[Rfam]
RNA sequence: UCGAUGACGUUCGGCGAGGUCUCCACCCGCUCCCGCGUGGGUUCUGAUGCACCUUCCCCGGUGUCAGAGGCCACGCACCGGGAAGCGGAUGGGGGCCUGGCCGCACGGGUCGGCUCGU
Numbered sequence: 001u002c003g004a005u006g007a008c009g010u011u012c013g014g015c016g017a018g019g020u021c022u023c024c025a026c027c028c029g030c031u032c033c034c035g036c037g038u039g040g041g042u043u044c045u046g047a048u049g050c051a052c053c054u055u056c057c058c059c060g061g062u063g064u065c066a067g068a069g070g071c072c073a074c075g076c077a078c079c080g081g082g083a084a085g086c087g088g089a090u091g092g093g094g095g096c097c098u099g100g101c102c103g104c105a106c107g108g109g110u111c112g113g114c115u116c117g118u
Stems, first nucleotide, its partner, number of pairs: 010105001012103004018097002021094005027088005033082002036075005043068008
RNA: mraW RNA
Organism: Thermobispora bispora